The family of this 124-nucleotide sequence from Acinonyx jubatus is "U4atac minor spliceosomal RNA". Its family is annotated with spliceosomal tri-snRNP complex assembly, U4atac snRNP and pre-mRNA 5'-splice site binding in the Gene Ontology. U4atac is an essential component of the minor U12-type spliceosome complex which is required for removal of the rarer class of eukaryotic introns (AT-AC, U12-type). The family's consensus secondary structure is taken from published work. A search with the family's covariance model found it, with a score of 68 bits. The organism belongs to Acinonyx, within Eukaryota.
RNA sequence: CCCAUUCUAUUCUUGGGGUUGUGCUGCUGUCCCGUGAGCGUGGAGUGAGGGCAAUAUUGCUAAUGCCUAAACAACACCCGUGACAGCUAGAGCUUUGCUUUACCUUGGUGCAGUGUUUGGAAAA
Numbered sequence: 001c002c003c004a005u006u007c008u009a010u011u012c013u014u015g016g017g018g019u020u021g022u023g024c025u026g027c028u029g030u031c032c033c034g035u036g037a038g039c040g041u042g043g044a045g046u047g048a049g050g051g052c053a054a055u056a057u058u059g060c061u062a063a064u065g066c067c068u069a070a071a072c073a074a075c076a077c078c079c080g081u082g083a084c085a086g087c088u089a090g091a092g093c094u095u096u097g098c099u100u101u102a103c104c105u106u107g108g109u110g111c112a113g114u115g116u117u118u119g120g121a122a123a124a
Stems, first nucleotide, its partner, number of pairs: 006018003021060003026055001028053005038046002080111003084107002088102006